[Rfam]
RNA sequence: AUCUGGGUCCGGGCCCCUCUGGAAGUCGGCUGCCGCUUGGGCGACGCCUUCGAUGUCGGACCCUUCCA
Numbered sequence: 001a002u003c004u005g006g007g008u009c010c011g012g013g014c015c016c017c018u019c020u021g022g023a024a025g026u027c028g029g030c031u032g033c034c035g036c037u038u039g040g041g042c043g044a045c046g047c048c049u050u051c052g053a054u055g056u057c058g059g060a061c062c063c064u065u066c067c068a
Stems, first nucleotide, its partner, number of pairs: 006062007022051004027046002
This 68-nucleotide RNA sequence from Zavarzinia compransoris belongs to the Rfam family "terC RNA". By type it is a cis-regulatory element.